[Rfam]
RNA sequence: GGUUUUAUAGUGUAGCGGUCAGCACGUGAGAUUCUGAUCAUCCCAGAAUUUUCUCGAGACCCCGGUUCGAAUCCGGGUAAGACCU
Numbered sequence: 001g002g003u004u005u006u007a008u009a010g011u012g013u014a015g016c017g018g019u020c021a022g023c024a025c026g027u028g029a030g031a032u033u034c035u036g037a038u039c040a041u042c043c044c045a046g047a048a049u050u051u052u053c054u055c056g057a058g059a060c061c062c063c064g065g066u067u068c069g070a071a072u073c074c075g076g077g078u079a080a081g082a083c084c085u
Stems, first nucleotide, its partner, number of pairs: 001084007010025004027056005061077005